RNA: Small Cajal body specific RNA 3
Organism: Python bivittatus
RNA sequence: AGUGGAAACUGAAUGUAUCUUAGUGAAGGCAAGCGAUGUGUCUAUUGUCUGUAUUUUCAGCAUUUCUAGAGUAAUAUAAAGGCUCCUGUAUGCUUUAAAACAAUUAGGUGAUCCAAAUAAUUUCUCUUUAUACAUC
Dot-bracket structure: ...(((..((((...........((.((((....(((......))))))).))...))))...)))...........(((((.....((..(..(((...........)))..)..))......))))).......